[Rfam]
RNA sequence: GUUGAGGAGAAUGUUGUCUGGUUCGAGAUCUUUCACCUGAAUGAUUUCGGACCAGGCUUCAUUCCCCUCAAC
Numbered sequence: 001g002u003u004g005a006g007g008a009g010a011a012u013g014u015u016g017u018c019u020g021g022u023u024c025g026a027g028a029u030c031u032u033u034c035a036c037c038u039g040a041a042u043g044a045u046u047u048c049g050g051a052c053c054a055g056g057c058u059u060c061a062u063u064c065c066c067c068u069c070a071a072c
Base pairs, nucleotide, nucleotide: 001072002071003070004069005068006067007066009064010063011062012061013060016057017056018055019054020053021052024049025048026047027046028045029044